[Rfam]
RNA sequence: CCAAUGUGGAUAUCCUUAGAGGUCUCUCUUGGGCUCUGUCCAGGUGGCGUAUGGGAGCAUAUAGCCCUUAAAGGUGCAGUGACGUAUAAUCCCCUUCCACAACAUUGGAGAACAAGCAUGUCCCCAGCCAUUAGGCGGGUGUGGGCAGCAUCCUGUAUAUUCCUAAAACUUCCCAGAGCCCUUGGGCAAUAUCUGGGGAGACAAACCAUGCGGGAUACAUUU
Numbered sequence: 001c002c003a004a005u006g007u008g009g010a011u012a013u014c015c016u017u018a019g020a021g022g023u024c025u026c027u028c029u030u031g032g033g034c035u036c037u038g039u040c041c042a043g044g045u046g047g048c049g050u051a052u053g054g055g056a057g058c059a060u061a062u063a064g065c066c067c068u069u070a071a072a073g074g075u076g077c078a079g080u081g082a083c084g085u086a087u088a089a090u091c092c093c094c095u096u097c098c099a100c101a102a103c104a105u106u107g108g109a110g111a112a113c114a115a116g117c118a119u120g121u122c123c124c125c126a127g128c129c130a131u132u133a134g135g136c137g138g139g140u141g142u143g144g145g146c147a148g149c150a151u152c153c154u155g156u157a158u159a160u161u162c163c164u165a166a167a168a169c170u171u172c173c174c175a176g177a178g179c180c181c182u183u184g185g186g187c188a189a190u191a192u193c194u195g196g197g198g199a200g201a202c203a204a205a206c207c208a209u210g211c212g213g214g215a216u217a218c219a220u221u222u
Stems, first nucleotide, its partner, number of pairs: 001108007008041005014033003018029004044100004053093004057087001059085002064080002152214007169200006178187003
Dot-bracket structure: ((((((((((((.(((.((((....)))).)))...)))))..((((.....(((((.((...((.............))...)).)..))))...)))).)))))))...........................................(((((((..........((((((...(((....))).......)))))).......)))))))........
Rfam assigns this 222-nucleotide sequence to the family "Small nucleolar RNA SNORA73 family". Gene Ontology terms of the family: RNA processing and nucleolus. Rfam 15.1 lists 2,326 matches to the family in 660 species. U17 (SNORA73A and SNORA73B) also known as E1 belongs to the H/ACA class of small nucleolar RNAs (snoRNAs). Vertebrate U17 is intron-encoded and ranges in length from 200-230 nucleotides, longer than most snoRNAs. It is one of the most abundant snoRNAs in human cells and is essential for the cleavage of pre-rRNA within the 5' external transcribed spacer (ETS). Clan: snR30-U17 clan.